[Rfam]
RNA: Small nucleolar RNA SNORA72
Organism: Phyllostomus discolor
RNA sequence: CUGGGAAUAUUCUUGCUGUUCUGGUUUUGUAAUCAUCAAGGCAGUCUAAACAUUCGCUAUGUUAAGACCACGCCUGUGUCCCGAGACCUAGUUCCUUCCCUAGGACUGGUUUUAUAAAUGCUGCUGAUAAAC
Numbered sequence: 001c002u003g004g005g006a007a008u009a010u011u012c013u014u015g016c017u018g019u020u021c022u023g024g025u026u027u028u029g030u031a032a033u034c035a036u037c038a039a040g041g042c043a044g045u046c047u048a049a050a051c052a053u054u055c056g057c058u059a060u061g062u063u064a065a066g067a068c069c070a071c072g073c074c075u076g077u078g079u080c081c082c083g084a085g086a087c088c089u090a091g092u093u094c095c096u097u098c099c100c101u102a103g104g105a106c107u108g109g110u111u112u113u114a115u116a117a118a119u120g121c122u123g124c125u126g127a128u129a130a131a132c
Stems, first nucleotide, its partner, number of pairs: 003057001005055001016044005022038004067125001069123002072121002082109001084107002087104005
Dot-bracket structure: ..(.(..........(((((.((((.........)))).)))))..........).).........(.((.((........(.((.(((((........))))).)).)..........)))).).......